[Rfam]
RNA sequence: UAGUUAAGUAGGGAGCUCCCUUCAGUCCAAGUAUAAGAAGCAUAAGAUCCAAUUAAUCUCCCGGAUCAUUCAUUCAUUUACCAAGUAAUUUGAUCAUCUUACUAACUUGGGUACAUGGAUGAAUGAGUCGGCAGCAAAUUGAAUCUGACCACUACCUAUGAGUGGACUGAAGAGAGCUCUCUUACACAACUCU
Numbered sequence: 001u002a003g004u005u006a007a008g009u010a011g012g013g014a015g016c017u018c019c020c021u022u023c024a025g026u027c028c029a030a031g032u033a034u035a036a037g038a039a040g041c042a043u044a045a046g047a048u049c050c051a052a053u054u055a056a057u058c059u060c061c062c063g064g065a066u067c068a069u070u071c072a073u074u075c076a077u078u079u080a081c082c083a084a085g086u087a088a089u090u091u092g093a094u095c096a097u098c099u100u101a102c103u104a105a106c107u108u109g110g111g112u113a114c115a116u117g118g119a120u121g122a123a124u125g126a127g128u129c130g131g132c133a134g135c136a137a138a139u140u141g142a143a144u145c146u147g148a149c150c151a152c153u154a155c156c157u158a159u160g161a162g163u164g165g166a167c168u169g170a171a172g173a174g175a176g177c178u179c180u181c182u183u184a185c186a187c188a189a190c191u192c193u
Stems, first nucleotide, its partner, number of pairs: 013179006020172001023169007058134002061131003067125004075117001
Dot-bracket structure: ............((((((.(..(((((((............................((.(((...((((....(.........................................)....))))...))).))............................)))))))..).))))))..............
RNA: MIR159 microRNA precursor family
Organism: Thalictrum thalictroides